Metazoan signal recognition particle RNA: a 299-nucleotide RNA sequence from Vombatus ursinus. Rfam classes the family as a non-coding RNA gene. The family's consensus secondary structure is taken from published work. A search with the family's covariance model found it, with a score of 263 bits.
RNA sequence: GCCGGGCGUGGUGGCGCACGCCUGUGAUCCUUGCGACUGGGAGGCUGAGGCUGGCGGAUCGCUUGAGCCCGGGGGUUCUGGGCUGCAGUGGGCUAUGCCGAUCGGGUGUCCGCACUAAGUUCGGCAUCAAUAUGGUGAACCCCCGGGAGCGGGGGGCCACCAGGUUGCCUAAGGAGGGGCGAACCGGCCCAGGUCGGAAACGGAGCAGGUCAAAACUCCCGUGCCGAUCAGUAGUGGGAUCGCGCCCGUGAGUAGCUGCUGCACUCCAGCCGGGGCGAAACGGGGAGACCCAGUCUCUU
Numbered sequence: 001g002c003c004g005g006g007c008g009u010g011g012u013g014g015c016g017c018a019c020g021c022c023u024g025u026g027a028u029c030c031u032u033g034c035g036a037c038u039g040g041g042a043g044g045c046u047g048a049g050g051c052u053g054g055c056g057g058a059u060c061g062c063u064u065g066a067g068c069c070c071g072g073g074g075g076u077u078c079u080g081g082g083c084u085g086c087a088g089u090g091g092g093c094u095a096u097g098c099c100g101a102u103c104g105g106g107u108g109u110c111c112g113c114a115c116u117a118a119g120u121u122c123g124g125c126a127u128c129a130a131u132a133u134g135g136u137g138a139a140c141c142c143c144c145g146g147g148a149g150c151g152g153g154g155g156g157c158c159a160c161c162a163g164g165u166u167g168c169c170u171a172a173g174g175a176g177g178g179g180c181g182a183a184c185c186g187g188c189c190c191a192g193g194u195c196g197g198a199a200a201c202g203g204a205g206c207a208g209g210u211c212a213a214a215a216c217u218c219c220c221g222u223g224c225c226g227a228u229c230a231g232u233a234g235u236g237g238g239a240u241c242g243c244g245c246c247c248g249u250g251a252g253u254a255g256c257u258g259c260u261g262c263a264c265u266c267c268a269g270c271c272g273g274g275g276c277g278a279a280a281c282g283g284g285g286a287g288a289c290c291c292a293g294u295c296u297c298u299u
Stems, first nucleotide, its partner, number of pairs: 001045003004023007028042003047297008059286002062283002067276004072271002078269005084263007092256005098250001103248007110238002113236005119229001121227007128167004133162005140155006168174002176219004186211004194203003